[Rfam]
RNA sequence: CGACCUCGUGUUAGGGUAGAGUACCCGCCAAAUUUAAGCAUAUUAAUAAGCGGAGGAAAAGAAACCAACUGGGAUUCCCUCAGUAAGGGCGACUGAAACGGGAAAAGCUCAGCGCAUAACCUGGCGUCGUGACCCGGCGCCAGGGGUGUUGCGUUUCGGAGGGUCCGGCACGCAGUCUCUCACCGCCUAAGUUAUGCUUGAAAGCGGCCACUACCCAUGGAGGGUGACAGGCCCGUGUGGCGGCGCCCGCGAGGGUACACGAGAGAUUGUCGGAAAGGGCCUCUCCGUAGAGUCGGGUUGCUUGAAAAUGCAGCCCUAAGCAGGUGGUAAACUCCAUCUAAGGCUAAAUAUGACCACGAGACCGAUAGCGAACAAGUACCGUGAGGGAAAGUUGAAAAGAACUUUGAAGAGAGAGUUCAAGAGUACGUGAAACCGUUAAGAGCCAAA
Numbered sequence: 001c002g003a004c005c006u007c008g009u010g011u012u013a014g015g016g017u018a019g020a021g022u023a024c025c026c027g028c029c030a031a032a033u034u035u036a037a038g039c040a041u042a043u044u045a046a047u048a049a050g051c052g053g054a055g056g057a058a059a060a061g062a063a064a065c066c067a068a069c070u071g072g073g074a075u076u077c078c079c080u081c082a083g084u085a086a087g088g089g090c091g092a093c094u095g096a097a098a099c100g101g102g103a104a105a106a107g108c109u110c111a112g113c114g115c116a117u118a119a120c121c122u123g124g125c126g127u128c129g130u131g132a133c134c135c136g137g138c139g140c141c142a143g144g145g146g147u148g149u150u151g152c153g154u155u156u157c158g159g160a161g162g163g164u165c166c167g168g169c170a171c172g173c174a175g176u177c178u179c180u181c182a183c184c185g186c187c188u189a190a191g192u193u194a195u196g197c198u199u200g201a202a203a204g205c206g207g208c209c210a211c212u213a214c215c216c217a218u219g220g221a222g223g224g225u226g227a228c229a230g231g232c233c234c235g236u237g238u239g240g241c242g243g244c245g246c247c248c249g250c251g252a253g254g255g256u257a258c259a260c261g262a263g264a265g266a267u268u269g270u271c272g273g274a275a276a277g278g279g280c281c282u283c284u285c286c287g288u289a290g291a292g293u294c295g296g297g298u299u300g301c302u303u304g305a306a307a308a309u310g311c312a313g314c315c316c317u318a319a320g321c322a323g324g325u326g327g328u329a330a331a332c333u334c335c336a337u338c339u340a341a342g343g344c345u346a347a348a349u350a351u352g353a354c355c356a357c358g359a360g361a362c363c364g365a366u367a368g369c370g371a372a373c374a375a376g377u378a379c380c381g382u383g384a385g386g387g388a389a390a391g392u393u394g395a396a397a398a399g400a401a402c403u404u405u406g407a408a409g410a411g412a413g414a415g416u417u418c419a420a421g422a423g424u425a426c427g428u429g430a431a432a433c434c435g436u437u438a439a440g441a442g443c444c445a446a447a
Stems, first nucleotide, its partner, number of pairs: 024055001025053004035042002065072002076103004086094002106345004113153004119147001120144009158286002161282003165279002173269007181245001183243005191208001193207001196205002216220001223233002295316007322339005379386002402413004
RNA: Eukaryotic large subunit ribosomal RNA, nucleotides 1 to 447
Organism: Chionoecetes opilio